[Rfam]
RNA sequence: GGAAGUGGAUAGGGCACUGGUGGCUCUCCCGGACUUCAAAUCCGGUGUGGCGGGUUAAUAGCCCGUCAGGUGGGUUCGAUUCCCAUGCACUUCC
Numbered sequence: 001g002g003a004a005g006u007g008g009a010u011a012g013g014g015c016a017c018u019g020g021u022g023g024c025u026c027u028c029c030c031g032g033a034c035u036u037c038a039a040a041u042c043c044g045g046u047g048u049g050g051c052g053g054g055u056u057a058a059u060a061g062c063c064c065g066u067c068a069g070g071u072g073g074g075u076u077c078g079a080u081u082c083c084c085a086u087g088c089a090c091u092u093c094c
Stems, first nucleotide, its partner, number of pairs: 001094007009086001011027005017022001029045005048068005071085004
RNA: Selenocysteine transfer RNA